Small nucleolar RNA Z43: an 86-nucleotide RNA sequence from Salix brachista.
Taxonomically the source falls in Salix (Eukaryota, Viridiplantae, Streptophyta, Salicaceae).
[Rfam]
RNA sequence: GGGCAGUGACGAUUUCAUCGUGAAAGGUCUCGUUCGUCGUAAUGGCUCUUUAAAGGCCUUGACGACCAUAACCAUAUUCCGAGCCC
Numbered sequence: 001g002g003g004c005a006g007u008g009a010c011g012a013u014u015u016c017a018u019c020g021u022g023a024a025a026g027g028u029c030u031c032g033u034u035c036g037u038c039g040u041a042a043u044g045g046c047u048c049u050u051u052a053a054a055g056g057c058c059u060u061g062a063c064g065a066c067c068a069u070a071a072c073c074a075u076a077u078u079c080c081g082a083g084c085c086c
Stems, first nucleotide, its partner, number of pairs: 001086004047055001
Rfam 15.1 lists 859 matches to the family in 240 species. For this family Rfam cites "The high diversity of snoRNAs in plants: identification and comparative study of 120 snoRNA genes from Oryza sativa" (Chen et al., Nucleic Acids Res, 2003). It is annotated as a C/D-box small nucleolar RNA.